[Rfam]
RNA sequence: CCGGGCUCGCGUAACUGGCGCUUCGAGAUGGAUCACCAUCAGGGAACGCGAAGCGCUGUGCCGCCGCGCGCCUGGGCAUUGUCC
Numbered sequence: 001c002c003g004g005g006c007u008c009g010c011g012u013a014a015c016u017g018g019c020g021c022u023u024c025g026a027g028a029u030g031g032a033u034c035a036c037c038a039u040c041a042g043g044g045a046a047c048g049c050g051a052a053g054c055g056c057u058g059u060g061c062c063g064c065c066g067c068g069c070g071c072c073u074g075g076g077c078a079u080u081g082u083c084c
Base pairs, nucleotide, nucleotide: 004054007051008050009049010048011047012046015043016042017072018071019070020069021068028039029038030037031036063077064076065075

A member of the RNA family "ZMP/ZTP riboswitch aptamer (pfl RNA motif)" from Trinickia terrae, 84 nucleotides long. The literature on the family includes a 2015 paper in Structure by Ren et al., "Global RNA Fold and Molecular Recognition for a pfl Riboswitch Bound to ZMP, a Master Regulator of One-Carbon Metabolism".